[Rfam]
RNA sequence: GGAGGCAGCGACGCCCCCCCGACAAUGACCGGUUCACUCCGGUCAGCUGCCUCCGCGCCUCAUCUCGAUGAUGCCUUUGAAGGCGGACCGUUUGCGGUCCGCC
Number, nucleotide and partner (000 for none) at each position: 001g054002g053003a052004g051005g050006c049007a048008g047009c046010g000011a000012c021013g020014c000015c000016c000017c000018c000019c000020c013021g012022a000023c000024a000025a000026u000027g044028a043029c042030c041031g040032g039033u000034u000035c000036a000037c000038u000039c032040c031041g030042g029043u028044c027045a000046g009047c008048u007049g006050c005051c004052u003053c002054c001055g000056c000057g000058c000059c000060u000061c000062a000063u000064c000065u000066c000067g000068a000069u000070g000071a000072u000073g000074c000075c000076u000077u000078u000079g000080a000081a000082g103083g102084c101085g100086g099087a098088c097089c096090g095091u000092u000093u000094g000095c090096g089097g088098u087099c086100c085101g084102c083103c082
Rfam assigns this 103-nucleotide RNA from Brevundimonas halotolerans to the family "Cauldobacter sRNA CC3552". The family's consensus secondary structure was predicted with RNAalifold. The literature on the family includes a 2008 paper in Mol Microbiol by Landt et al., "Small non-coding RNAs in Caulobacter crescentus". Rfam classes the family as a small RNA. The source organism's lineage runs through Bacteria, Pseudomonadati, Alphaproteobacteria, Caulobacteraceae and Brevundimonas. It scores 66 bits against the family's covariance model.